[Rfam]
RNA: mir-932 microRNA precursor family
RNA sequence: UGAAGCUUUCAAUUCCGUAGUGCAUUGCAGUGUGUUUUACUAUCUACUGCAAGCGCAGCGGAUUUGGCAACUUUGAC
Numbered sequence: 001u002g003a004a005g006c007u008u009u010c011a012a013u014u015c016c017g018u019a020g021u022g023c024a025u026u027g028c029a030g031u032g033u034g035u036u037u038u039a040c041u042a043u044c045u046a047c048u049g050c051a052a053g054c055g056c057a058g059c060g061g062a063u064u065u066g067g068c069a070a071c072u073u074u075g076a077c
Stems, first nucleotide, its partner, number of pairs: 007069001009067003014062005021055003025052005